[Rfam]
RNA sequence: CACGGUUGGUGGCGUACUCCCUGAACUCGGGCGGUGCGAUCGCGUACGCUGUUUAACAGCGCAGAUACCAGGCCCGCCAACGAUGCGGGCUUUUUUUU
Number, nucleotide and partner (000 for none) at each position: 001c000002a000003c000004g000005g000006u000007u000008g000009g043010u042011g041012g040013c000014g037015u036016a035017c034018u033019c000020c031021c030022u029023g028024a000025a000026c000027u000028c023029g022030g021031g020032c000033g018034g017035u016036g015037c014038g000039a000040u012041c011042g010043c009044g000045u000046a000047c000048g000049c000050u000051g000052u000053u000054u000055a000056a000057c000058a000059g000060c000061g000062c000063a000064g000065a000066u000067a000068c000069c000070a000071g091072g090073c089074c088075c087076g086077c085078c000079a000080a000081c000082g000083a000084u000085g077086c076087g075088g074089g073090c072091u071092u000093u000094u000095u000096u000097u000098u000
The family of this 98-nucleotide sequence is "Tryptophan operon leader".
Rfam's curators write: At least 6 amino acid operons are known to be regulated by attenuation. In each a leader sequence of 150-200 bp is found upstream of the first gene in the operon.
The family's RNA type in Rfam is cis-regulatory leader.
Pairs were carried over by alignment from the consensus structure, which is taken from published work.
Gene Ontology terms of the family: transcriptional attenuation by ribosome and tryptophan biosynthetic process.
The literature on the family includes a 1982 paper in Annu Rev Genet by Kolter and Yanofsky, "Attenuation in amino acid biosynthetic operons".